[Rfam]
RNA sequence: UGGACAGCAGCAUCAAUCUGGGAACUUGUUAGAAACGCAGUUUCUCUGUAAAUGUCCUAGAUAAAUAUAGUAGCAUUCUGUUCACCCCUUUGCAAGUAAAAAGGGUGGACCAUUCCACUACUGACAUAU
Numbered sequence: 001u002g003g004a005c006a007g008c009a010g011c012a013u014c015a016a017u018c019u020g021g022g023a024a025c026u027u028g029u030u031a032g033a034a035a036c037g038c039a040g041u042u043u044c045u046c047u048g049u050a051a052a053u054g055u056c057c058u059a060g061a062u063a064a065a066u067a068u069a070g071u072a073g074c075a076u077u078c079u080g081u082u083c084a085c086c087c088c089u090u091u092g093c094a095a096g097u098a099a100a101a102a103g104g105g106u107g108g109a110c111c112a113u114u115c116c117a118c119u120a121c122u123g124a125c126a127u128a129u
Stems, first nucleotide, its partner, number of pairs: 002057005010049002020046004024041003028038002068123006088103004
Dot-bracket structure: .(((((...((........(((((((.((.......))))).)))).))...)))))..........((((((..............((((........))))..............))))))......